Notes:
A member of the RNA family "Z30 small nucleolar RNA" from Labrus bergylta, 97 nucleotides long. It scores 79 bits against the family's covariance model. The organism belongs to Labrus, within Eukaryota. The family has 20 seed sequences and 802 matches in Rfam 15.1. It is annotated as a C/D-box small nucleolar RNA. A reference for the family is Galardi et al. (2002), "Purified box C/D snoRNPs are able to reproduce site-specific 2'-O-methylation of target RNA in vitro", Mol Cell Biol. Rfam links the family to the GO terms nucleolus and RNA processing.
RNA sequence: CUGCAGUGAUGAUGGUAGAUGUGACUGACCUGGUAUUGCUGACCUCCAGGUUUGCUCUGACCAGGAAAUGAACAAUGUUAAUCUUCUCUCUGAGCAG
Numbered sequence: 001c002u003g004c005a006g007u008g009a010u011g012a013u014g015g016u017a018g019a020u021g022u023g024a025c026u027g028a029c030c031u032g033g034u035a036u037u038g039c040u041g042a043c044c045u046c047c048a049g050g051u052u053u054g055c056u057c058u059g060a061c062c063a064g065g066a067a068a069u070g071a072a073c074a075a076u077g078u079u080a081a082u083c084u085u086c087u088c089u090c091u092g093a094g095c096a097g
Base pairs, nucleotide, nucleotide: 003095004094038055039054041052